This 89-nucleotide sequence from Dyella sp. AD56 belongs to the Rfam family "SAH (S-adenosyl-L-homocysteine) riboswitch aptamer". A reference for the family is Wang et al. (2008), "Riboswitches that sense S-adenosylhomocysteine and activate genes involved in coenzyme recycling", Mol Cell. The match comes from Rfam's covariance-model search (54 bits). The source organism's lineage runs through Bacteria, Gammaproteobacteria, Lysobacterales, Rhodanobacteraceae and Dyella.
[Rfam]
RNA sequence: CCCGUCGAGGGGCGCUGCGACCGUGGCUUCGUGAACUUGCGAAACCGGCCAGGCUCGAUGGAUUUUUCCUGUAACGGCGCCCGGUUAAC
Dot-bracket structure: .(((((((............(((......................)))......)))))))............................